[Rfam]
RNA sequence: UGUAAACAUCCUCGACUGGAAGCUGUGAAGCCACAGAUGGGCUUUCAGUCGGAUGUUUGCAGC
Numbered sequence: 001u002g003u004a005a006a007c008a009u010c011c012u013c014g015a016c017u018g019g020a021a022g023c024u025g026u027g028a029a030g031c032c033a034c035a036g037a038u039g040g041g042c043u044u045u046c047a048g049u050c051g052g053a054u055g056u057u058u059g060c061a062g063c
Base pairs, nucleotide, nucleotide: 001061002060003059004058005057006056007055008054009053010052011051015049016048017047018046019045020044021043022042023041024040
Source information
The record is a 63-nucleotide sequence from Tupaia belangeri, which matches "mir-30 microRNA precursor family" in Rfam. Lineage of the source: Eukaryota > Opisthokonta > Eumetazoa > Tupaia > Tupaia belangeri. The sequence is in the family's curated seed alignment. This family consists of the mammalian microRNA (miRNA) precursor mir-30a. The family has 175 seed sequences and 3,879 matches in Rfam 15.1.